[Rfam]
The family of this 105-nucleotide RNA sequence from Phoenix dactylifera is "Plastid-psbA-1 3UTR RNA". Plastid psbA-1 is a non-coding RNA (ncRNA) present in plastids. It was identified in inverted repeat sequences in the 3 prime untranslate region (3UTR) of photosystem II quinone-binding protein (psbA). Taxonomically the source falls in Phoenix (Eukaryota, Viridiplantae, Streptophyta, Phoeniceae). By type it is a cis-regulatory element. A search with the family's covariance model found it, with a score of 58 bits. Clan: Plastid-psbA 3UTR RNA clan.
RNA sequence: UUGAUAUCUGUUUCUAAACUUACUUCCUUUUGUCUUAGUGUAUAUAAAUCAUUGAAGGAAUGGAGCAAUACCCAAUAUCUUCUUUUAGUUGGGUAUUGCUCCAUU
Number, nucleotide and partner (000 for none) at each position: 001u000002u000003g000004a000005u000006a000007u000008c000009u000010g019011u018012u000013u000014c000015u000016a000017a000018a011019c010020u000021u000022a000023c000024u000025u000026c000027c000028u000029u000030u000031u000032g000033u000034c000035u000036u000037a000038g000039u000040g000041u000042a000043u000044a000045u000046a000047a000048a000049u000050c000051a000052u000053u000054g000055a000056a000057g000058g000059a105060a104061u103062g102063g101064a100065g099066c098067a097068a096069u095070a094071c093072c000073c091074a090075a089076u000077a000078u087079c000080u000081u000082c000083u000084u000085u000086u000087a078088g000089u075090u074091g073092g000093g071094u070095a069096u068097u067098g066099c065100u064101c063102c062103a061104u060105u059